This 65-nucleotide RNA from Ornithorhynchus anatinus belongs to the Rfam family "Small nucleolar RNA Z39". It scores 70 bits against the family's covariance model. The organism belongs to Ornithorhynchus, within Eukaryota. The family's consensus secondary structure was predicted with PFOLD. The family has 5 seed sequences and 935 matches in Rfam 15.1. It is annotated as a C/D-box small nucleolar RNA. Rfam links the family to the GO terms nucleolus and RNA processing. A reference for the family is Chen et al. (2003), "The high diversity of snoRNAs in plants: identification and comparative study of 120 snoRNA genes from Oryza sativa", Nucleic Acids Res.
RNA sequence: GUACAGGUGAUGUGGCAAAAUUCAGUAUGAGUAUAACUAUGAUACUGUAAACGCUUUCUGAUGUA
Numbered sequence: 001g002u003a004c005a006g007g008u009g010a011u012g013u014g015g016c017a018a019a020a021u022u023c024a025g026u027a028u029g030a031g032u033a034u035a036a037c038u039a040u041g042a043u044a045c046u047g048u049a050a051a052c053g054c055u056u057u058c059u060g061a062u063g064u065a
Base pairs, nucleotide, nucleotide: 002065003064004063005062012057014055015054016053023047024046025045026044027043028042